Background
Rfam assigns this 99-nucleotide RNA from Oncorhynchus tshawytscha to the family "Vault RNA".
RNA sequence: GCUGCGGUGUAGCUCAAUGGUUACUUCAAAAACGUUCUCUAUCAAAUGUUCUGUACCUCUGCAAAGAGGUUCGAACCACGGGCGCUGUCCCGUGUUUUG
Numbered sequence: 001g002c003u004g005c006g007g008u009g010u011a012g013c014u015c016a017a018u019g020g021u022u023a024c025u026u027c028a029a030a031a032a033c034g035u036u037c038u039c040u041a042u043c044a045a046a047u048g049u050u051c052u053g054u055a056c057c058u059c060u061g062c063a064a065a066g067a068g069g070u071u072c073g074a075a076c077c078a079c080g081g082g083c084g085c086u087g088u089c090c091c092g093u094g095u096u097u098u099g
Stems, first nucleotide, its partner, number of pairs: 002094001006090002012083004018078003025075003029071001
The base pairs follow the family's consensus structure, which is taken from published work. The source organism's lineage runs through Eukaryota, Actinopteri, Osteoglossocephalai, Salmoniformes and Oncorhynchus. The family's RNA type in Rfam is non-coding RNA gene. The match comes from Rfam's covariance-model search (43 bits). About the family: This family of RNAs are found as part of the enigmatic vault ribonucleoprotein complex.